Shown here is a 74-nucleotide RNA sequence from Takifugu rubripes, a member of the family "mir-103/107 microRNA precursor family". Rfam describes the family as follows. This family consists of the mammalian microRNA (miRNA) precursors mir-103 and mir107. Animal miRNAs are transcribed as ~70nt precursors and subsequently processed by the Dicer enzyme to give a ~22nt product. In this case the mature sequence comes from the 3' arm of the precursor. The extents of the hairpin precursors are not generally known and are estimated based on hairpin prediction. The base pairs follow the family's consensus structure, which was predicted with RNAalifold. A reference for the family is Mourelatos et al. (2002), "miRNPs: a novel class of ribonucleoproteins containing numerous microRNAs", Genes Dev.
[Rfam]
RNA sequence: CCCUGCUCUCAGCCUCUUUACGGUGCUGCCUUGUGGCAUCUUGAUCAAGCAGCAUUGUACAGGGCUAUGAAGGC
Numbered sequence: 001c002c003c004u005g006c007u008c009u010c011a012g013c014c015u016c017u018u019u020a021c022g023g024u025g026c027u028g029c030c031u032u033g034u035g036g037c038a039u040c041u042u043g044a045u046c047a048a049g050c051a052g053c054a055u056u057g058u059a060c061a062g063g064g065c066u067a068u069g070a071a072g073g074c
Stems, first nucleotide, its partner, number of pairs: 014064004019059010030049004